Shown here is an 80-nucleotide sequence from Oryzias javanicus, a member of the family "Small nucleolar RNA SNORD71".
RNA sequence: CAAAUGCUGGAUGAUGAUAAUAAGAGUGAUCCAUCGUCUGACUGACUUUGUUGACAUCAUUAGUGUUCUGACAGCAUUUG
Numbered sequence: 001c002a003a004a005u006g007c008u009g010g011a012u013g014a015u016g017a018u019a020a021u022a023a024g025a026g027u028g029a030u031c032c033a034u035c036g037u038c039u040g041a042c043u044g045a046c047u048u049u050g051u052u053g054a055c056a057u058c059a060u061u062a063g064u065g066u067u068c069u070g071a072c073a074g075c076a077u078u079u080g
Stems, first nucleotide, its partner, number of pairs: 002079007009069002013031003017027001034054003038050001

By type it is an H/ACA-box small nucleolar RNA. Taxonomically the source falls in Oryzias (Eukaryota, Eurypterygia, Ctenosquamata, Acanthomorphata). The family's consensus secondary structure was predicted with RNAalifold. From the family's description: snoRNA HBII-239 belongs to the family of C/D snoRNAs.It is the human orthologue of the mouse MBII-239 described and is predicted to guide 2'O-ribose methylation of 5.8S rRNA on residue U14. Rfam 15.1 lists 556 matches to the family in 528 species.